[Rfam]
RNA sequence: GAAGGGGUUGUGGCCCUUCGGAGUCGCCUGUCGGGUGGGAGACUCCAAACCACCUCAUGCUGCGUUGGUUGAAAACCGUCGUGGCGAGCGAUGAGGAAAAGGCACUCGUUGAAGGGGGUGGGU
Numbered sequence: 001g002a003a004g005g006g007g008u009u010g011u012g013g014c015c016c017u018u019c020g021g022a023g024u025c026g027c028c029u030g031u032c033g034g035g036u037g038g039g040a041g042a043c044u045c046c047a048a049a050c051c052a053c054c055u056c057a058u059g060c061u062g063c064g065u066u067g068g069u070u071g072a073a074a075a076c077c078g079u080c081g082u083g084g085c086g087a088g089c090g091a092u093g094a095g096g097a098a099a100a101g102g103c104a105c106u107c108g109u110u111g112a113a114g115g116g117g118g119u120g121g122g123u
Stems, first nucleotide, its partner, number of pairs: 001019005020046006027039004051122001053096006059085002062082003066078004101119001103117001105115002

Rfam assigns this 123-nucleotide RNA sequence from Saccharothrix sp. ALI-22-I to the family "Group II catalytic intron D1-D4-2". Group II introns are found in rRNA, tRNA and mRNA of organelles in fungi, plants and protists, and also in mRNA in bacteria. On this family, see Bonen and Vogel, Trends Genet 2001: "The ins and outs of group II introns". A search with the family's covariance model found it, with a score of 82 bits. The pairing is the family consensus, mapped onto this sequence. The source organism's lineage runs through Bacteria, Bacillati, Pseudonocardiales, Pseudonocardiaceae and Saccharothrix.